[Rfam]
RNA sequence: CUGCAAUGAUGAGUUGCUUUCGGUCCGUGUUUCUGACAUUUGUUUGACGAUUUGAAAGCUCUGAGCGG
Numbered sequence: 001c002u003g004c005a006a007u008g009a010u011g012a013g014u015u016g017c018u019u020u021c022g023g024u025c026c027g028u029g030u031u032u033c034u035g036a037c038a039u040u041u042g043u044u045u046g047a048c049g050a051u052u053u054g055a056a057a058g059c060u061c062u063g064a065g066c067g068g
Base pairs, nucleotide, nucleotide: 001068002067003066004065
Rfam assigns this 68-nucleotide RNA sequence from Paramuricea clavata to the family "Small nucleolar RNA SNORD18". The base pairs follow the family's consensus structure, which was predicted with PFOLD. For this family Rfam cites "Two different snoRNAs are encoded in introns of amphibian and human L1 ribosomal protein genes" (Prislei et al., Nucleic Acids Res, 1993). The organism belongs to Paramuricea, within Eukaryota. Its Rfam clan is "SNORD18 clan".